[Rfam]
RNA sequence: CGAGUCGGUUAGCCUAAUUCAGAAUCUUCUGAAGCGGAGGAACCAGUUUAAUCGGGGCUUACGGUUGUGACCUUAGAAAUUUUCUUUGCAAUCCAACCGGGGACAAUCUCUCAGUCCUCGCCCGUCAGCUAACUCCGUCGGCACGUUGAGAGUUUGA
Numbered sequence: 001c002g003a004g005u006c007g008g009u010u011a012g013c014c015u016a017a018u019u020c021a022g023a024a025u026c027u028u029c030u031g032a033a034g035c036g037g038a039g040g041a042a043c044c045a046g047u048u049u050a051a052u053c054g055g056g057g058c059u060u061a062c063g064g065u066u067g068u069g070a071c072c073u074u075a076g077a078a079a080u081u082u083u084c085u086u087u088g089c090a091a092u093c094c095a096a097c098c099g100g101g102g103a104c105a106a107u108c109u110c111u112c113a114g115u116c117c118u119c120g121c122c123c124g125u126c127a128g129c130u131a132a133c134u135c136c137g138u139c140g141g142c143a144c145g146u147u148g149a150g151a152g153u154u155u156g157a
Base pairs, nucleotide, nucleotide: 012142013141014140018033019032020031021030022029034138035137036136037135038134039133044054055123056122057121063098064097065096066095101117102116103115104114
Notes: Shown here is a 157-nucleotide RNA sequence from Pseudanabaenaceae cyanobacterium LEGE 13415, a member of the family "c-di-AMP riboswitch aptamer (ydaO/yuaA leader)". Rfam's curators write: This family represents a conserved RNA structure found upstream of the ydaO and yuaA genes in Bacillus subtilis and related genes in other bacteria. Its family is annotated with regulation of gene expression and cyclic-di-AMP binding in the Gene Ontology. The match comes from Rfam's covariance-model search (59 bits).